The record is a 108-nucleotide RNA, which matches "c-di-GMP-II-GAG riboswitch aptamer" in Rfam. For this family Rfam cites "Bioinformatic analysis of riboswitch structures uncovers variant classes with altered ligand specificity" (Weinberg et al., Proc Natl Acad Sci U S A, 2017). Clan: c-di-GMP_II riboswitch clan.

[Rfam]
RNA sequence: CGGUGCAGGGGAGGCAUCGAUCUCCGGGCCGCAGGAACCGCGGUCGCCGAACCGGAUGUCCUCCGGUUGGGCCCGGAGGGAGCCAGUGGCGAGACCGGCCCCACGUCA
Dot-bracket structure: .((((..((((.(((......((((((((............[[[[[[[......................))))))))...)))...]]]]]..]]..)))).)))).